[Rfam]
RNA sequence: AGCUUUGCGCAGAGGCGAUAACGUGACCCCCGUGAGAGAAGCCGAGAUGCGUUUAUUGCUGGUUGAAAACUUUCACCCGCAAUGAUCAAUGAAAUAUGGGAUUUACGCAAUUUUUGGACGCUCAAAACGAG
Numbered sequence: 001a002g003c004u005u006u007g008c009g010c011a012g013a014g015g016c017g018a019u020a021a022c023g024u025g026a027c028c029c030c031c032g033u034g035a036g037a038g039a040a041g042c043c044g045a046g047a048u049g050c051g052u053u054u055a056u057u058g059c060u061g062g063u064u065g066a067a068a069a070c071u072u073u074c075a076c077c078c079g080c081a082a083u084g085a086u087c088a089a090u091g092a093a094a095u096a097u098g099g100g101a102u103u104u105a106c107g108c109a110a111u112u113u114u115u116g117g118a119c120g121c122u123c124a125a126a127a128c129g130a131g
Base pairs, nucleotide, nucleotide: 020053021052022051023050024049026048028046036043079108080107082104084102086100087099089097090096091095121131122130123129
Rfam assigns this 131-nucleotide RNA sequence from Panagrolaimus sp. ES5 to the family "U4 spliceosomal RNA". Gene Ontology terms of the family: spliceosomal tri-snRNP complex assembly and U4 snRNP. About the family: U4 small nuclear RNA (U4 snRNA) is a component of the major U2-dependent spliceosome. By type it is a spliceosomal small nuclear RNA. The source organism's lineage runs through Eukaryota, Chromadorea, Rhabditida, Panagrolaimoidea and Panagrolaimus. Rfam 15.1 lists 32,178 matches to the family in 2,547 species.